Background:
A member of the RNA family "SAM-I/IV (S-adenosyl methionine) riboswitch aptamer", 93 nucleotides long. For this family Rfam cites "The aptamer core of SAM-IV riboswitches mimics the ligand-binding site of SAM-I riboswitches" (Weinberg et al., RNA, 2008).
[Rfam]
RNA sequence: UAGGAACAUAAAGAGAAGGUUAAGACCUCGGCAACCUGGAAGACUAUCCAAGGUGCUUGUAGAUGUGGCAGUAAUGCAACUAAGUAGUCGUAU
Numbered sequence: 001u002a003g004g005a006a007c008a009u010a011a012a013g014a015g016a017a018g019g020u021u022a023a024g025a026c027c028u029c030g031g032c033a034a035c036c037u038g039g040a041a042g043a044c045u046a047u048c049c050a051a052g053g054u055g056c057u058u059g060u061a062g063a064u065g066u067g068g069c070a071g072u073a074a075u076g077c078a079a080c081u082a083a084g085u086a087g088u089c090g091u092a093u
Base pairs, nucleotide, nucleotide: 006066007065008064009063015029017028018027019026020025030057031056032055035053036052037051038049039048040047042088068077069076070075